RNA sequence: CUCUUAUCAAGAGUGGCAGAGGGACUGGCCCUAUGACGCCCGGCAACCGUUCCAUUUAUGGAAUUGGUGCUAAAUCCUGCAAAACAGCUAUGCUGUUUUGAAAGAUGAGAG
Numbered sequence: 001c002u003c004u005u006a007u008c009a010a011g012a013g014u015g016g017c018a019g020a021g022g023g024a025c026u027g028g029c030c031c032u033a034u035g036a037c038g039c040c041c042g043g044c045a046a047c048c049g050u051u052c053c054a055u056u057u058a059u060g061g062a063a064u065u066g067g068u069g070c071u072a073a074a075u076c077c078u079g080c081a082a083a084a085c086a087g088c089u090a091u092g093c094u095g096u097u098u099u100g101a102a103a104g105a106u107g108a109g110a111g
Stems, first nucleotide, its partner, number of pairs: 001111008013041001015040003021031003025079001027077002042071004047067002050062003075103001080100008